[Rfam]
Shown here is a 130-nucleotide RNA sequence from Zhenpiania hominis, a member of the family "azaaromatic riboswitch aptamer (yjdF RNA)". The source organism's lineage runs through Bacteria, Bacillota, Clostridia, Peptostreptococcales and Zhenpiania. It scores 70 bits against the family's covariance model.

RNA sequence: AACAGCAAAGAUAAAAACGCAACGCGCAUUUUUCCAUGCGCCAGAGCCGGUAGGUAGCCCGGCCGUCUCAUUGCUACAGAUGAGGUAAGUAACCUGCCCCUCCGGGUUGUCCAUUCUUUGCUCAUUGACC
Numbered sequence: 001a002a003c004a005g006c007a008a009a010g011a012u013a014a015a016a017a018c019g020c021a022a023c024g025c026g027c028a029u030u031u032u033u034c035c036a037u038g039c040g041c042c043a044g045a046g047c048c049g050g051u052a053g054g055u056a057g058c059c060c061g062g063c064c065g066u067c068u069c070a071u072u073g074c075u076a077c078a079g080a081u082g083a084g085g086u087a088a089g090u091a092a093c094c095u096g097c098c099c100c101u102c103c104g105g106g107u108u109g110u111c112c113a114u115u116c117u118u119u120g121c122u123c124a125u126u127g128a129c130c
Stems, first nucleotide, its partner, number of pairs: 004122008046063005065086008096107004
Dot-bracket structure: ...((((((((..................................(((((........))))).((((((((......)))))))).........((((....)))).......))))))))........